[Rfam]
RNA sequence: AUUCCCUUUAAUUACAGUCCAGAGAGGCUGAGAAGGAACUAGAGAACGGUCAGGUACAGAUUUAGUGUAUCUGGAUAUUAUCGUAUGCUCAAAAACCUCUCAUCUUCUGGUGAGAGGUUUUAUUAUU
Number, nucleotide and partner (000 for none) at each position: 001a000002u000003u038004c000005c036006c035007u034008u033009u032010a000011a000012u000013u000014a000015c030016a029017g028018u027019c026020c000021a000022g000023a000024g000025a000026g019027g018028c017029u016030g015031a000032g009033a008034a007035g006036g005037a000038a003039c000040u000041a000042g000043a000044g000045a079046a078047c000048g076049g000050u074051c073052a072053g071054g070055u069056a068057c067058a066059g000060a000061u000062u000063u000064a000065g000066u058067g057068u056069a055070u054071c053072u052073g051074g050075a000076u048077a000078u046079u045080a000081u000082c000083g000084u000085a000086u000087g000088c000089u000090c000091a000092a121093a120094a119095a118096c117097c116098u115099c114100u113101c112102a111103u110104c109105u000106u000107c000108u000109g104110g103111u102112g101113a100114g099115a098116g097117g096118u095119u094120u093121u092122a000123u000124u000125a000126u000127u000

This 127-nucleotide sequence from Anaerobacillus arseniciselenatis belongs to the Rfam family "PyrR binding site". It is annotated as a cis-regulatory element. Rfam's curators write: This family represents the PyrR binding site and terminator structure. Pairs were carried over by alignment from the consensus structure, which is taken from published work.